[Rfam]
RNA sequence: CCGGGGACUGAAGUCCACGGCUACAUUGUACCGUCCUUAUAGGACU
Numbered sequence: 001c002c003g004g005g006g007a008c009u010g011a012a013g014u015c016c017a018c019g020g021c022u023a024c025a026u027u028g029u030a031c032c033g034u035c036c037u038u039a040u041a042g043g044a045c046u
Stems, first nucleotide, its partner, number of pairs: 001020003005016004033045005